[Rfam]
RNA sequence: GGCCUCCCUCUGCAGGGUGAUCGAUUGUGGGGUUCACAAUCGAUCACCCUGCAAAGGGAGGCC
Number, nucleotide and partner (000 for none) at each position: 001g063002g062003c061004c060005u059006c058007c057008c056009u055010c000011u053012g052013c051014a050015g049016g048017g047018u046019g045020a044021u043022c042023g041024a040025u039026u038027g037028u036029g035030g034031g000032g000033u000034u030035c029036a028037c027038a026039a025040u024041c023042g022043a021044u020045c019046a018047c017048c016049c015050u014051g013052c012053a011054a000055a009056g008057g007058g006059a005060g004061g003062c002063c001